[Rfam]
RNA sequence: UCGACUCGGUAACGAUGGCAACGUCAGUCAACGCUGACGGAUGGAGGUGACCUGACAACGGUCAGGAACCGGCGUAAGCCGCAAGCAGCUCAGUGAGCUGUGGAUACCUCACAAGAACUCAACAUUUUGCCACCCCGAUGCACAGUCACCAGUCG
Numbered sequence: 001u002c003g004a005c006u007c008g009g010u011a012a013c014g015a016u017g018g019c020a021a022c023g024u025c026a027g028u029c030a031a032c033g034c035u036g037a038c039g040g041a042u043g044g045a046g047g048u049g050a051c052c053u054g055a056c057a058a059c060g061g062u063c064a065g066g067a068a069c070c071g072g073c074g075u076a077a078g079c080c081g082c083a084a085g086c087a088g089c090u091c092a093g094u095g096a097g098c099u100g101u102g103g104a105u106a107c108c109u110c111a112c113a114a115g116a117a118c119u120c121a122a123c124a125u126u127u128u129g130c131c132a133c134c135c136c137g138a139u140g141c142a143c144a145g146u147c148a149c150c151a152g153u154c155g
Stems, first nucleotide, its partner, number of pairs: 002155004008150003012146002019043002022039007044110004052065005086103001087099005